[Rfam]
RNA sequence: GGUCAUGAGUCCCGACGACAAGCCCCGGCUGGUCGGGCAGCAACCCUCCUUCGCGGCGGGGUGCUCCGGGUGACGACCAGGCCGCACGCGCGUCGUGCGGCAAGCGCGGACC
Numbered sequence: 001g002g003u004c005a006u007g008a009g010u011c012c013c014g015a016c017g018a019c020a021a022g023c024c025c026c027g028g029c030u031g032g033u034c035g036g037g038c039a040g041c042a043a044c045c046c047u048c049c050u051u052c053g054c055g056g057c058g059g060g061g062u063g064c065u066c067c068g069g070g071u072g073a074c075g076a077c078c079a080g081g082c083c084g085c086a087c088g089c090g091c092g093u094c095g096u097g098c099g100g101c102a103a104g105c106g107c108g109g110a111c112c
Stems, first nucleotide, its partner, number of pairs: 001078004009038001011037006021030002039065003044061003048056002081101008
Shown here is a 112-nucleotide RNA sequence from Promicromonospora sukumoe, a member of the family "SAM (S-adenosyl methionine) riboswitch aptamer".